Rfam assigns this 322-nucleotide RNA from Thermococcus kodakarensis to the family "Archaeal RNase P".
Pairs were carried over by alignment from the consensus structure, which is taken from published work.
A reference for the family is Frank and Pace (1998), "Ribonuclease P: unity and diversity in a tRNA processing ribozyme", Annu Rev Biochem.
Rfam classes the family as a ribozyme.
From the family's description: Ribonuclease P (RNase P) is a ubiquitous endoribonuclease, found in archaea, bacteria and eukarya as well as chloroplasts and mitochondria. Its best characterised activity is the generation of mature 5'-ends of tRNAs by cleaving the 5'-leader elements of precursor-tRNAs. Cellular RNase Ps are ribonucleoproteins. RNA from bacterial RNase Ps retains its catalytic activity in the absence of the protein subunit, i.e. it is a ribozyme. Isolated eukaryotic and archaeal RNase P RNA has not been shown to retain its catalytic function, but is still essential for the catalytic activity of the holoenzyme. Although the archaeal and eukaryotic holoenzymes have a much greater protein content than the bacterial ones, the RNA cores from all the three lineages are homologous -- helices corresponding to P1, P2, P3, P4, and P10/11 are common to all cellular RNase P RNAs. Yet, there is considerable sequence variation, particularly among the eukaryotic RNAs.
The sequence is in the family's curated seed alignment.
[Rfam]
Nucleotides: 322
Base pairs, nucleotide, nucleotide: 001322002321003320005318006317007316008315009314010313011312012290013289014288015287016286017285021033022032023031024030025029038309039308040307042306043305044304045303046302047221048220049219050218052254053253054252055251056250057249060217061216062215063214064213065078066077067076068075069074079092080091081090082089083088093212094211098209099208100207101206114197115196117192118191119190120189121188122187123186124185140166141165225272226271227270228269235262236261237260238259239258
Number, partner (000 for none) and nucleotide at each position: 001322g002321c003320g004000a005318g006317g007316g008315g009314g010313u011312c012290g013289g014288g015287g016286g017285c018000u019000c020000u021033c022032g023031g024030g025029g026000u027000a028000c029025u030024c031023c032022c033021g034000a035000g036000g037000a038309a039308g040307u041000u042306c043305c044304g045303c046302c047221c048220a049219c050218c051000g052254c053253a054252c055251c056250g057249g058000g059000g060217c061216c062215g063214c064213g065078g066077u067076g068075c069074c070000g071000c072000a073000a074069g075068g076067c077066a078065c079092c080091g081090g082089c083088c084000g085000a086000g087000a088083g089082g090081c091080c092079g093212g094211g095000c096000a097000a098209c099208g100207g101206c102000g103000c104000a105000g106000a107000a108000a109000c110000g111000a112000c113000a114197c115196g116000g117192c118191c119190c120189c121188c122187c123186g124185g125000a126000u127000a128000u129000g130000g131000g132000g133000a134000u135000g136000a137000a138000a139000g140166c141165g142000g143000u144000g145000a146000a147000g148000g149000g150000c151000c152000c153000g154000g155000c156000g157000a158000c159000g160000g161000u162000g163000c164000c165141c166140g167000a168000g169000c170000u171000a172000a173000c174000c175000c176000g177000c178000a179000g180000a181000c182000g183000a184000c185124c186123c187122g188121g189120g190119g191118g192117g193000a194000u195000g196115c197114g198000g199000u200000g201000a202000a203000a204000c205000g206101g207100c208099c209098g210000u211094c212093c213064c214063g215062c216061g217060g218050g219049g220048u221047g222000c223000a224000a225272g226271g227270c228269c229000g230000a231000g232000g233000g234000a235262g236261g237260g238259g239258c240000g241000a242000u243000g244000a245000g246000u247000u248000c249057c250056c251055g252054g253053u254052g255000u256000g257000a258239g259238c260237c261236c262235c263000g264000u265000g266000g267000u268000a269228g270227g271226c272225c273000g274000c275000u276000c277000a278000g279000u280000c281000g282000a283000a284000u285017g286016c287015c288014c289013c290012c291000u292000u293000g294000a295000u296000a297000c298000a299000g300000a301000a302046g303045g304044c305043g306042g307040g308039c309038u310000a311000c312011g313010g314009c315008c316007c317006c318005c319000u320003c321002g322001c